[Rfam]
RNA sequence: GGAAAUUUGAGAGGAGCUGUCCUUAGUACGAGAGGACCGGGAUGGACGCACCGCUGGUGUACCAGUUGUUCCGCCAGGAGCACCGCUGGGUAGCCAAGUGCGGACGGGAUAAGCGCUGAAAGCAUCUAAGCGCGAAGCCCACCUCAAGAUGAGAUUUCCCAUUCCUUCGUGGAAGUAAGACCCCUUGAAGAUGACAAGGUAGAUCGGUCCGAGGUGUAAGCACAGCAAUGUGUUCAGCUGACGGAUACGAAUCGGUCGAGG
Numbered sequence: 001g002g003a004a005a006u007u008u009g010a011g012a013g014g015a016g017c018u019g020u021c022c023u024u025a026g027u028a029c030g031a032g033a034g035g036a037c038c039g040g041g042a043u044g045g046a047c048g049c050a051c052c053g054c055u056g057g058u059g060u061a062c063c064a065g066u067u068g069u070u071c072c073g074c075c076a077g078g079a080g081c082a083c084c085g086c087u088g089g090g091u092a093g094c095c096a097a098g099u100g101c102g103g104a105c106g107g108g109a110u111a112a113g114c115g116c117u118g119a120a121a122g123c124a125u126c127u128a129a130g131c132g133c134g135a136a137g138c139c140c141a142c143c144u145c146a147a148g149a150u151g152a153g154a155u156u157u158c159c160c161a162u163u164c165c166u167u168c169g170u171g172g173a174a175g176u177a178a179g180a181c182c183c184c185u186u187g188a189a190g191a192u193g194a195c196a197a198g199g200u201a202g203a204u205c206g207g208u209c210c211g212a213g214g215u216g217u218a219a220g221c222a223c224a225g226c227a228a229u230g231u232g233u234u235c236a237g238c239u240g241a242c243g244g245a246u247a248c249g250a251a252u253c254g255g256u257c258g259a260g261g
Stems, first nucleotide, its partner, number of pairs: 001159008011145004017045007047102005055096003062089005067082006106140003113133005162174003176259001179257004183199005204250003207246005213239002220233005
Shown here is a 261-nucleotide part of an RNA from Thermoactinomyces daqus, a member of the family "Bacterial large subunit ribosomal RNA". It scores 2981 bits against the family's covariance model. The family's consensus secondary structure is taken from published work. Taxonomically the source falls in Thermoactinomyces (Bacteria, Bacillota, Bacilli, Thermoactinomycetaceae).